[Rfam]
RNA sequence: CCGAGCAGCCGGGGUGGUAGCGGUACCUUGAACCAACAAUCCGCUAUAGUUGGGGUGAUGCUUCGUAGAGGGCUUAAGCGGUGGAGCUGCCCUCCAUAAGUGGCGUUGACGUCUGGGUCUUGCGCAAUGGAAAUCUAUGAACCGUGUCAGGGUGGGAACACAGCAGCACUAAGUAGAAGCUUUCAUGUGACGCGAGGCAGCCUGGAGGGAGUUAACUGUGGAGGUAACGUCUGUUGUGAUGGUUCGAAGCGAGGCGCUCGG
Numbered sequence: 001c002c003g004a005g006c007a008g009c010c011g012g013g014g015u016g017g018u019a020g021c022g023g024u025a026c027c028u029u030g031a032a033c034c035a036a037c038a039a040u041c042c043g044c045u046a047u048a049g050u051u052g053g054g055g056u057g058a059u060g061c062u063u064c065g066u067a068g069a070g071g072g073c074u075u076a077a078g079c080g081g082u083g084g085a086g087c088u089g090c091c092c093u094c095c096a097u098a099a100g101u102g103g104c105g106u107u108g109a110c111g112u113c114u115g116g117g118u119c120u121u122g123c124g125c126a127a128u129g130g131a132a133a134u135c136u137a138u139g140a141a142c143c144g145u146g147u148c149a150g151g152g153u154g155g156g157a158a159c160a161c162a163g164c165a166g167c168a169c170u171a172a173g174u175a176g177a178a179g180c181u182u183u184c185a186u187g188u189g190a191c192g193c194g195a196g197g198c199a200g201c202c203u204g205g206a207g208g209g210a211g212u213u214a215a216c217u218g219u220g221g222a223g224g225u226a227a228c229g230u231c232u233g234u235u236g237u238g239a240u241g242g243u244u245c246g247a248a249g250c251g252a253g254g255c256g257c258u259c260g261g
Base pairs, nucleotide, nucleotide: 001261002260003259004258005257006256008056009055010054011029012028013027014026015025016024018022033053034052035051036050037049061254062253063252064251065250066249070245071244072243073242074241078237079236080235081234082233083232084231085230088226089225092223093222094221095220096219097218100216101215102213103212104211110208112206113205114204115203116202117201118200119196120195121194122193123192124191125187126186128185129184130183131182132181134177135176136175137174138173144169145168146167147166152161153160154159
RNA: Bacterial large signal recognition particle RNA
Organism: Agathobacter rectalis